The family of this 99-nucleotide sequence from Lactiplantibacillus plantarum is "azaaromatic riboswitch aptamer (yjdF RNA)". Rfam's curators put it in the seed alignment. Pairs were carried over by alignment from the consensus structure, which is taken from published work.
RNA sequence: AUUAGCGAAAUUAAAAACACGGUCUGGUCGGUAGUCCAGACGCAGCAACGGCUGUCAGUAACCUGCCUUCCUUGGUUGUCCGAAUUUCGUUAGUGAAAU
Number, nucleotide and partner (000 for none) at each position: 001a000002u000003u000004a091005g090006c089007g088008a087009a086010a085011u084012u000013a000014a000015a000016a000017a000018c000019a000020c000021g000022g041023u040024c039025u038026g037027g036028u000029c000030g000031g000032u000033a000034g000035u000036c027037c026038a025039g024040a023041c022042g055043c054044a053045g052046c051047a000048a000049c000050g000051g046052c045053u044054g043055u042056c000057a000058g000059u000060a000061a000062c000063c000064u000065g076066c075067c074068u000069u000070c000071c000072u000073u000074g067075g066076u065077u000078g000079u000080c000081c000082g000083a000084a011085u010086u009087u008088c007089g006090u005091u004092a000093g000094u000095g000096a000097a000098a000099u000